The record is a 102-nucleotide RNA sequence from Aminipila luticellarii, which matches "THF (Tetrahydrofolate) riboswitch aptamer" in Rfam. From the family's description: Tetrahydrofolate (THF) riboswitch was first reported for Ames et al. as an RNA motif in 5' untranslated (5'-UTR)regions of folate transport and biosynthesis genes in Firmicutes genomes. Pairs were carried over by alignment from the consensus structure, which is taken from published work.
RNA sequence: AGUAGAGUAAAUAUUGUGCGUCAAGUGUCAUAAGAUGGGAUGUUGCUUAUGAACGAAAAACAGCGAUUCGUUGGUUUGCGGUACAAUAUUGCGUCCGCUACU
Numbered sequence: 001a002g003u004a005g006a007g008u009a010a011a012u013a014u015u016g017u018g019c020g021u022c023a024a025g026u027g028u029c030a031u032a033a034g035a036u037g038g039g040a041u042g043u044u045g046c047u048u049a050u051g052a053a054c055g056a057a058a059a060a061c062a063g064c065g066a067u068u069c070g071u072u073g074g075u076u077u078g079c080g081g082u083a084c085a086a087u088a089u090u091g092c093g094u095c096c097g098c099u100a101c102u
Base pairs, nucleotide, nucleotide: 001102002101003100004099005098010090011089012088013087014086015085016084017083018082019080020079021078025054026053028052029051030050031049032048033047034046038096039095040094041093042092058077059076060075061074